[Rfam]
RNA sequence: GUGCCUAAAUUUAAUGAGUAAGGAAAACCAAUCGGCCUUGCUAAUCGCUUGGCAGUUUGGCUUCAAGGCAGAGGGAUGAGGGCAGCUCAGUGCGGCCCGAGUCCCUUGAAGCUCAAUUUUUGUAGGGGCACAGGUCGUCCCCGACGAGCGGCCUUGGAGAAUCAGCACACUACUUUCGUGCUGGGAUGCCAAGGCAGCUUUGGGUGUAGCGAUCUGCCCA
Numbered sequence: 001g002u003g004c005c006u007a008a009a010u011u012u013a014a015u016g017a018g019u020a021a022g023g024a025a026a027a028c029c030a031a032u033c034g035g036c037c038u039u040g041c042u043a044a045u046c047g048c049u050u051g052g053c054a055g056u057u058u059g060g061c062u063u064c065a066a067g068g069c070a071g072a073g074g075g076a077u078g079a080g081g082g083c084a085g086c087u088c089a090g091u092g093c094g095g096c097c098c099g100a101g102u103c104c105c106u107u108g109a110a111g112c113u114c115a116a117u118u119u120u121u122g123u124a125g126g127g128g129c130a131c132a133g134g135u136c137g138u139c140c141c142c143g144a145c146g147a148g149c150g151g152c153c154u155u156g157g158a159g160a161a162u163c164a165g166c167a168c169a170c171u172a173c174u175u176u177c178g179u180g181c182u183g184g185g186a187u188g189c190c191a192a193g194g195c196a197g198c199u200u201u202g203g204g205u206g207u208a209g210c211g212a213u214c215u216g217c218c219c220a
Stems, first nucleotide, its partner, number of pairs: 004023003008019001033055001035053003040048001056111003060107001126219004132215007141204002146200004151195007
RNA: U12 minor spliceosomal RNA